[Rfam]
RNA: mir-15 microRNA precursor family
Nucleotides: 080
Stems, first nucleotide, its partner, number of pairs: 001080005013068001016065008026055010
Number, partner (000 for none) and nucleotide at each position: 001080c002079c003078u004077u005076g006000g007000g008000g009000u010000a011000a012000a013068g014000u015000a016065g017064c018063a019062g020061c021060a022059c023058a024000u025000a026055a027054u028053g029052g030051u031050u032049u033048g034047u035046g036000a037000g038000u039000u040000u041000u042000g043000a044000a045000a046035u047034a048033c049032a050031g051030g052029c053028c054027a055026u056000a057000u058023u059022g060021u061020g062019c063018u064017g065016c066000c067000u068013c069000a070000a071000a072000a073000a074000u075000a076005c077004a078003a079002g080001g